[Rfam]
RNA sequence: GAUGAGACGUCUCCGGAAUCGCUGUACCGCCGUGAUGAUUCCCUCGAACCCUUUUACGUCUGAUGACCGCGGCUGUCCCGU
Numbered sequence: 001g002a003u004g005a006g007a008c009g010u011c012u013c014c015g016g017a018a019u020c021g022c023u024g025u026a027c028c029g030c031c032g033u034g035a036u037g038a039u040u041c042c043c044u045c046g047a048a049c050c051c052u053u054u055u056a057c058g059u060c061u062g063a064u065g066a067c068c069g070c071g072g073c074u075g076u077c078c079c080g081u
Stems, first nucleotide, its partner, number of pairs: 002081003006077001

Rfam assigns this 81-nucleotide RNA sequence from Anhinga anhinga to the family "Small nucleolar RNA MBII-202". Taxonomically the source falls in Anhinga (Eukaryota, Teleostomi, Archelosauria, Neoaves). Rfam 15.1 lists 745 matches to the family in 452 species. For this family Rfam cites "RNomics: an experimental approach that identifies 201 candidates for novel, small, non-messenger RNAs in mouse" (Huttenhofer et al., EMBO J, 2001). The base pairs follow the family's consensus structure, which was predicted with PFOLD.